[Rfam]
RNA sequence: CCCGAGGCCACAUACUUCUUUAUACCCCAUAGGGAUCACUGUGCUAUGGAAUGUAAGGAAGUGUGUGGUUUUGGC
Numbered sequence: 001c002c003c004g005a006g007g008c009c010a011c012a013u014a015c016u017u018c019u020u021u022a023u024a025c026c027c028c029a030u031a032g033g034g035a036u037c038a039c040u041g042u043g044c045u046a047u048g049g050a051a052u053g054u055a056a057g058g059a060a061g062u063g064u065g066u067g068g069u070u071u072u073g074g075c
Stems, first nucleotide, its partner, number of pairs: 007069018027049005
A member of the RNA family "mir-1 microRNA precursor family" from Jaculus jaculus, 75 nucleotides long. Lineage of the source: Eukaryota > Deuterostomia > Glires > Myomorpha > Jaculus. From the family's description: This family represents the microRNA (miRNA) mir-1 family. miRNAs are transcribed as ~70nt precursors (modelled here) and subsequently processed by the Dicer enzyme to give a ~22nt product. In this case the mature sequence comes from the 3' arm of the precursor. For this family Rfam cites "An extensive class of small RNAs in Caenorhabditis elegans" (Lee and Ambros, Science, 2001). The family's consensus secondary structure was predicted with RNAalifold.